[Rfam]
RNA: Metazoan signal recognition particle RNA
RNA sequence: GCCUGGCAUCCAGGUGGUGCAUGCCUGUAGUCCCAGAGGCUGGGGGUGCUGAGCCCCAUGGAUCACUUGAGUACAGGAGUUCUGGGCUGCAGGGCAUGGUGCUGAGUGGGUGUUCAAGCUAAGGCUGAUAUCAGUCUAGUAACCCGUGGGACACCAGGUUGGCUAAGGAGGGGUGAACUGGCCCAAGCUGGAGGUGGAGCAGGUCAAAGCUCCUGUGGCAGUCAGUAACAGGAUCAUGCCUGUGAACAGGCCCUGUAGCGUAAGGUUUUUUAGCAUUUGUAGGAAUGAGCAUUUU
Numbered sequence: 001g002c003c004u005g006g007c008a009u010c011c012a013g014g015u016g017g018u019g020c021a022u023g024c025c026u027g028u029a030g031u032c033c034c035a036g037a038g039g040c041u042g043g044g045g046g047u048g049c050u051g052a053g054c055c056c057c058a059u060g061g062a063u064c065a066c067u068u069g070a071g072u073a074c075a076g077g078a079g080u081u082c083u084g085g086g087c088u089g090c091a092g093g094g095c096a097u098g099g100u101g102c103u104g105a106g107u108g109g110g111u112g113u114u115c116a117a118g119c120u121a122a123g124g125c126u127g128a129u130a131u132c133a134g135u136c137u138a139g140u141a142a143c144c145c146g147u148g149g150g151a152c153a154c155c156a157g158g159u160u161g162g163c164u165a166a167g168g169a170g171g172g173g174u175g176a177a178c179u180g181g182c183c184c185a186a187g188c189u190g191g192a193g194g195u196g197g198a199g200c201a202g203g204u205c206a207a208a209g210c211u212c213c214u215g216u217g218g219c220a221g222u223c224a225g226u227a228a229c230a231g232g233a234u235c236a237u238g239c240c241u242g243u244g245a246a247c248a249g250g251c252c253c254u255g256u257a258g259c260g261u262a263a264g265g266u267u268u269u270u271u272a273g274c275a276u277u278u279g280u281a282g283g284a285a286u287g288a289g290c291a292u293u294u295u
Stems, first nucleotide, its partner, number of pairs: 001049002005025005011019001031046003051293002055289001057287003063282001065280002069274001073270001075268003083262002086259009097249001099247002102244001106243008114232002118229001120227002123223005129217003132161006139154002143150002163167001169214006179206005188197003